[Rfam]
RNA: Bacterial RNase P class A
Organism: Rothia kristinae
RNA sequence: CGGGUCGGCCAGACGAUCGCGCGGCCCACGCUUCGUGGGUCUCGAGGAAAGUCCGGGCUCCGCAGGGCAGGAUGGUGGAUAACGUCCACUCGGGGCAACCCGCAGGCCAGUGCCACAGAGAACAGACCACCCGCCGUGCCGCGUGCAGCGGUCACGGCGGGCCAGGGUGAAAAGGCGGUGUAAGAGACCACCGGGCGCCUGGUGACAGGUGCCGCAGGGUAAACCCCAUCCGGAGCAAGGCCAGACAGGAUGCGUUCGAGGGCUGCCCGCCCGAGCAUCCGGGUAGGCCGCUCGAGCCGCGGAGCGAUCCGCGGCCUAGAUGGAUGAUCGUCGCCGUGCGGCGGGUGACCGCCGCGCGGAACAGAACCCGGCUCAUCGGCCGACCCGUCCA
Numbered sequence: 001c002g003g004g005u006c007g008g009c010c011a012g013a014c015g016a017u018c019g020c021g022c023g024g025c026c027c028a029c030g031c032u033u034c035g036u037g038g039g040u041c042u043c044g045a046g047g048a049a050a051g052u053c054c055g056g057g058c059u060c061c062g063c064a065g066g067g068c069a070g071g072a073u074g075g076u077g078g079a080u081a082a083c084g085u086c087c088a089c090u091c092g093g094g095g096c097a098a099c100c101c102g103c104a105g106g107c108c109a110g111u112g113c114c115a116c117a118g119a120g121a122a123c124a125g126a127c128c129a130c131c132c133g134c135c136g137u138g139c140c141g142c143g144u145g146c147a148g149c150g151g152u153c154a155c156g157g158c159g160g161g162c163c164a165g166g167g168u169g170a171a172a173a174g175g176c177g178g179u180g181u182a183a184g185a186g187a188c189c190a191c192c193g194g195g196c197g198c199c200u201g202g203u204g205a206c207a208g209g210u211g212c213c214g215c216a217g218g219g220u221a222a223a224c225c226c227c228a229u230c231c232g233g234a235g236c237a238a239g240g241c242c243a244g245a246c247a248g249g250a251u252g253c254g255u256u257c258g259a260g261g262g263c264u265g266c267c268c269g270c271c272c273g274a275g276c277a278u279c280c281g282g283g284u285a286g287g288c289c290g291c292u293c294g295a296g297c298c299g300c301g302g303a304g305c306g307a308u309c310c311g312c313g314g315c316c317u318a319g320a321u322g323g324a325u326g327a328u329c330g331u332c333g334c335c336g337u338g339c340g341g342c343g344g345g346u347g348a349c350c351g352c353c354g355c356g357c358g359g360a361a362c363a364g365a366a367c368c369c370g371g372c373u374c375a376u377c378g379g380c381c382g383a384c385c386c387g388u389c390c391a
Stems, first nucleotide, its partner, number of pairs: 001387010011376001012332007020044002023041006050373002053371005058235004065268004070231005075089005090104001091102004105226002110224002112220003127166002130161008174192002177189003193215001194213008239289004248280006260272004296315008